RNA sequence: CCAGAUGACCGGGUGAUCGCGGGGCAGGGAAACCUGCCUUGAGGAAAGUCCGGGCUCCACGGUAAUAGGACGGCGGGUAACGCCCGCCGGGGGUGACCCCAGAGAUAGCGCCACAGAGAGCAGACCGCCCUGAUCCGUCAGGGCAAGGGUGAAAGGGUGCGGUAAGAGCGCACCGCGUGUCCGGUAACGGAGACGGCAUGGCAAGCCUCGUCCGGAGCAAGACCAAAUAGGAACGGCGCGCUUUUGGCGACAAAAGCAGGGCAUUACCGCCCCAGACCGUUCGGGUAGGUUGCGUGAGCCGUCCAGCGAUGGGCGGCCAAGAGGAAUGAUCGCCAAGGGGAGCAAUCCCUGAACAGAACCCGGCUUACAGGUCAUCUGGCCCG
Numbered sequence: 001c002c003a004g005a006u007g008a009c010c011g012g013g014u015g016a017u018c019g020c021g022g023g024g025c026a027g028g029g030a031a032a033c034c035u036g037c038c039u040u041g042a043g044g045a046a047a048g049u050c051c052g053g054g055c056u057c058c059a060c061g062g063u064a065a066u067a068g069g070a071c072g073g074c075g076g077g078u079a080a081c082g083c084c085c086g087c088c089g090g091g092g093g094u095g096a097c098c099c100c101a102g103a104g105a106u107a108g109c110g111c112c113a114c115a116g117a118g119a120g121c122a123g124a125c126c127g128c129c130c131u132g133a134u135c136c137g138u139c140a141g142g143g144c145a146a147g148g149g150u151g152a153a154a155g156g157g158u159g160c161g162g163u164a165a166g167a168g169c170g171c172a173c174c175g176c177g178u179g180u181c182c183g184g185u186a187a188c189g190g191a192g193a194c195g196g197c198a199u200g201g202c203a204a205g206c207c208u209c210g211u212c213c214g215g216a217g218c219a220a221g222a223c224c225a226a227a228u229a230g231g232a233a234c235g236g237c238g239c240g241c242u243u244u245u246g247g248c249g250a251c252a253a254a255a256g257c258a259g260g261g262c263a264u265u266a267c268c269g270c271c272c273c274a275g276a277c278c279g280u281u282c283g284g285g286u287a288g289g290u291u292g293c294g295u296g297a298g299c300c301g302u303c304c305a306g307c308g309a310u311g312g313g314c315g316g317c318c319a320a321g322a323g324g325a326a327u328g329a330u331c332g333c334c335a336a337g338g339g340g341a342g343c344a345a346u347c348c349c350u351g352a353a354c355a356g357a358a359c360c361c362g363g364c365u366u367a368c369a370g371g372u373c374a375u376c377u378g379g380c381c382c383g
Stems, first nucleotide, its partner, number of pairs: 001379010011368001012334007020041009046366003050363005055217004065265001068213005073087005088102001089100004103208002108206002110202003125148002127144007156174006175197001176195003180191004221291004231282006259272004298317008
Bacterial RNase P class A: a 383-nucleotide sequence from Asticcacaulis benevestitus. The base pairs follow the family's consensus structure, which is taken from published work. Rfam classes the family as a ribozyme. Lineage of the source: Bacteria > Alphaproteobacteria > Caulobacterales > Caulobacteraceae > Asticcacaulis benevestitus.